[Rfam]
RNA sequence: UUGCAAUGAUGACUCAAAAAAAUCUGUCAAUCCCCUGAGUACUGCCAUUGAUGUCUCCAUGUCUCUGAGCAA
Numbered sequence: 001u002u003g004c005a006a007u008g009a010u011g012a013c014u015c016a017a018a019a020a021a022a023u024c025u026g027u028c029a030a031u032c033c034c035c036u037g038a039g040u041a042c043u044g045c046c047a048u049u050g051a052u053g054u055c056u057c058c059a060u061g062u063c064u065c066u067g068a069g070c071a072a
Stems, first nucleotide, its partner, number of pairs: 001072004
RNA: Small nucleolar RNA SNORD110
Organism: Ochotona princeps